Overview
Rfam assigns this 178-nucleotide RNA sequence from Vibrio ziniensis to the family "Lysine riboswitch aptamer". Riboswitches are metabolite binding domains within certain messenger RNAs that serve as precision sensors for their corresponding targets. Allosteric rearrangement of mRNA structure is mediated by ligand binding, and this results in modulation of gene expression. The organism belongs to Vibrio, within Bacteria.

RNA sequence: UAUGGCAGAAGAGGAGCACUGCCCAGGCAGAUGUUUUGUGGAGCCUCAACUCCAAAACAAAACAUUCAGGGGGAGUAGUGCCGAGAUGAGUCUAAGUUGUGGCUUUGGCUUAUCGGUUGUAAGGGUUGAAUCCCUUCAACUGUCAUCAGUGCUAUGCUGAUGAAGAGCUUCUGAGGAA
Dot-bracket structure: .....((((((....(((((((.(.....((((((((.....................))))))))......).)))))))...((((((((.(((......))).))))))))(((((.(((((......)))))))))).(((((((.......)))))))....)))))).....